[Rfam]
Annotation:
A member of the RNA family "Glycine riboswitch aptamer" from Paenirhodobacter hankyongi, 90 nucleotides long. The match comes from Rfam's covariance-model search (60 bits). The pairing is the family consensus, mapped onto this sequence. This family represents the bacterial glycine riboswitch. NCBI's taxonomy places the organism under Bacteria, Pseudomonadati, Alphaproteobacteria, Rhodobacterales, Paenirhodobacter.

RNA sequence: ACGUCAGGAACGGGAGAAGCCGGCCACGCGCCGGUGCCGAAGGAGCAACCGCCCCGGUAAACUCUCAGGCAAAAGGACCGACCUGAUCAA
Numbered sequence: 001a002c003g004u005c006a007g008g009a010a011c012g013g014g015a016g017a018a019g020c021c022g023g024c025c026a027c028g029c030g031c032c033g034g035u036g037c038c039g040a041a042g043g044a045g046c047a048a049c050c051g052c053c054c055c056g057g058u059a060a061a062c063u064c065u066c067a068g069g070c071a072a073a074a075g076g077a078c079c080g081a082c083c084u085g086a087u088c089a090a
Base pairs, nucleotide, nucleotide: 007084008083011080012079013078020034021033022032023031036070037069038068039066040065043064044063045062049057050056